[Rfam]
Nucleotides: 058
Base pairs, nucleotide, nucleotide: 027055028054029053030052031051032050033049034048035047036046037045038044
Number, partner (000 for none) and nucleotide at each position: 001000g002000g003000g004000u005000g006000g007000a008000u009000u010000g011000a012000a013000g014000u015000c016000u017000g018000g019000a020000u021000a022000c023000u024000g025000u026000a027055g028054g029053g030052g031051c032050c033049a034048a035047c036046u037045c038044c039000a040000g041000u042000u043000c044038g045037g046036g047035g048034u049033u050032g051031g052030u053029c054028c055027u056000g057000u058000c

The family of this 58-nucleotide RNA sequence is "psbNH RNA".
The base pairs follow the family's consensus structure, which is taken from published work.